[Rfam]
RNA sequence: GCCACCCGCGCAGGGAGAACCCGGCGGCCCUCCCGGGGGCUGGCCGGUGCCGAAGGAGCAACCGCCCCGGUAAACUCUCAGGCAAGCGGACCGCGCGGGGCAA
Numbered sequence: 001g002c003c004a005c006c007c008g009c010g011c012a013g014g015g016a017g018a019a020c021c022c023g024g025c026g027g028c029c030c031u032c033c034c035g036g037g038g039g040c041u042g043g044c045c046g047g048u049g050c051c052g053a054a055g056g057a058g059c060a061a062c063c064g065c066c067c068c069g070g071u072a073a074a075c076u077c078u079c080a081g082g083c084a085a086g087c088g089g090a091c092c093g094c095g096c097g098g099g100g101c102a103a
Stems, first nucleotide, its partner, number of pairs: 006098006013092002021047004049083003052079002056077003062070002

This 103-nucleotide RNA from Maritimibacter sp. HL-12 belongs to the Rfam family "Glycine riboswitch aptamer". Pairs were carried over by alignment from the consensus structure. Lineage of the source: Bacteria > Pseudomonadota > Alphaproteobacteria > Roseobacteraceae > Maritimibacter.